[Rfam]
RNA sequence: UUCUUAUAAAGAGAGGUGGAGGGACUGGCCCUUUGAAACCUCAGCAACCUAAUAUUACAUAAAGGUGCUAAAUCCUGUAGGAUCUAAAAGUCCUAAAAGAUAAGAA
Numbered sequence: 001u002u003c004u005u006a007u008a009a010a011g012a013g014a015g016g017u018g019g020a021g022g023g024a025c026u027g028g029c030c031c032u033u034u035g036a037a038a039c040c041u042c043a044g045c046a047a048c049c050u051a052a053u054a055u056u057a058c059a060u061a062a063a064g065g066u067g068c069u070a071a072a073u074c075c076u077g078u079a080g081g082a083u084c085u086a087a088a089a090g091u092c093c094u095a096a097a098a099g100a101u102a103a104g105a106a
Stems, first nucleotide, its partner, number of pairs: 001106007013042005021031003025077001027075002043069004048065002050061002073098001078095006
About this RNA
A member of the RNA family "SAM riboswitch aptamer (S box leader)" from Bacillus cereus, 106 nucleotides long. The source organism's lineage runs through Bacteria, Bacilli, Bacillaceae, Bacillus and Bacillus cereus. It is one of the family's seed sequences. The family's consensus secondary structure is taken from published work.